[Rfam]
RNA sequence: AUUUAGCCCCGAUAGUAGUGGAAAUCCUUGUGAGCCGGAGUUCGGCUCACAAGAUUGCAACGGAUAGCGGGCCCCAUG
Dot-bracket structure: ........(((.((...((...((((..((((((((.......)))))))).))))...))...)).)))........

About this RNA
Flavo-1 RNA: a 78-nucleotide sequence from Flavobacterium sp. A45. Rfam classes the family as a small RNA. The base pairs follow the family's consensus structure, which is taken from published work.